This 99-nucleotide part of an RNA from a Theionarchaea archaeon belongs to the Rfam family "Archaeal large subunit ribosomal RNA". Lineage of the source: Archaea > Methanobacteriati > Methanobacteriota > Theionarchaea. The family's consensus secondary structure is taken from published work. Gene Ontology terms of the family: ribosome and structural constituent of ribosome. The match comes from Rfam's covariance-model search (2800 bits).
RNA sequence: GGCAGGGCGCGAAAGGGUAGACUCUUGUCGAAAGGAGAGUUCGCAAGAUCUCAACUGAGAUAAGACGACCAGUGUCCUGUCGUCCGUCUAGAAACACGG
Numbered sequence: 001g002g003c004a005g006g007g008c009g010c011g012a013a014a015g016g017g018u019a020g021a022c023u024c025u026u027g028u029c030g031a032a033a034g035g036a037g038a039g040u041u042c043g044c045a046a047g048a049u050c051u052c053a054a055c056u057g058a059g060a061u062a063a064g065a066c067g068a069c070c071a072g073u074g075u076c077c078u079g080u081c082g083u084c085c086g087u088c089u090a091g092a093a094a095c096a097c098g099g
Stems, first nucleotide, its partner, number of pairs: 001081010015070002023065007033056001038051002041048002084099004